Rfam assigns this 173-nucleotide RNA sequence from Vanilla planifolia to the family "small nucleolar RNA snoR127". NCBI's taxonomy places the organism under Eukaryota, Streptophyta, Euphyllophyta, Asparagales, Vanilla.
[Rfam]
RNA sequence: CUGGAAUGAUGCAAAUUAGCCAAAUCAGAACAUUUAGUGCUCCUUUGGGCUAAUUGUUGCAAGCUUAUGUACUGCACUUGUGUGUGAAGUACUUAAGUUUGUGAACAUGUUUGCCUUCUGUAGAAGUGCUUUACUCUGAUGAGAACAAUGGGAUUGGUUGCUCACUGACCAGG
Numbered sequence: 001c002u003g004g005a006a007u008g009a010u011g012c013a014a015a016u017u018a019g020c021c022a023a024a025u026c027a028g029a030a031c032a033u034u035u036a037g038u039g040c041u042c043c044u045u046u047g048g049g050c051u052a053a054u055u056g057u058u059g060c061a062a063g064c065u066u067a068u069g070u071a072c073u074g075c076a077c078u079u080g081u082g083u084g085u086g087a088a089g090u091a092c093u094u095a096a097g098u099u100u101g102u103g104a105a106c107a108u109g110u111u112u113g114c115c116u117u118c119u120g121u122a123g124a125a126g127u128g129c130u131u132u133a134c135u136c137u138g139a140u141g142a143g144a145a146c147a148a149u150g151g152g153a154u155u156g157g158u159u160g161c162u163c164a165c166u167g168a169c170c171a172g173g
Base pairs, nucleotide, nucleotide: 001172002171003170004169
A search with the family's covariance model found it, with a score of 56 bits. For this family Rfam cites "Mining small RNA sequencing data: a new approach to identify small nucleolar RNAs in Arabidopsis" (Chen and Wu, Nucleic Acids Res, 2009). Gene Ontology terms of the family: RNA processing and nucleolus.